[Rfam]
RNA sequence: GAAUGAAAUGAUGAUUAGUUAUUUCCCUAUUGGUUUGAUUGCCAGGAUGAUGGCACUUUGUAUUAGCUCUAUCUGAUCAUUC
Numbered sequence: 001g002a003a004u005g006a007a008a009u010g011a012u013g014a015u016u017a018g019u020u021a022u023u024u025c026c027c028u029a030u031u032g033g034u035u036u037g038a039u040u041g042c043c044a045g046g047a048u049g050a051u052g053g054c055a056c057u058u059u060g061u062a063u064u065a066g067c068u069c070u071a072u073c074u075g076a077u078c079a080u081u082c
Stems, first nucleotide, its partner, number of pairs: 002081004037056001040055004
RNA: Small nucleolar RNA Z102/R77